The record is an 85-nucleotide sequence from Domibacillus iocasae, which matches "c-di-GMP-I riboswitch aptamer" in Rfam. A search with the family's covariance model found it, with a score of 84 bits. The literature on the family includes a 2007 paper in Nucleic Acids Res by Weinberg et al., "Identification of 22 candidate structured RNAs in bacteria using the CMfinder comparative genomics pipeline". NCBI's taxonomy places the organism under Bacteria, Bacillati, Bacillota, Bacillaceae, Domibacillus.
[Rfam]
RNA sequence: CUACGAUAAGAGCAAACUUAUUGAAAGAUAAGGACGCAAAGCCACGGGUCUAAAGCAAAGAAGCUAGGAUAGCCGGGCUGCCGAA
Numbered sequence: 001c002u003a004c005g006a007u008a009a010g011a012g013c014a015a016a017c018u019u020a021u022u023g024a025a026a027g028a029u030a031a032g033g034a035c036g037c038a039a040a041g042c043c044a045c046g047g048g049u050c051u052a053a054a055g056c057a058a059a060g061a062a063g064c065u066a067g068g069a070u071a072g073c074c075g076g077g078c079u080g081c082c083g084a085a
Stems, first nucleotide, its partner, number of pairs: 012037002017032006040079004045075003048070003055064002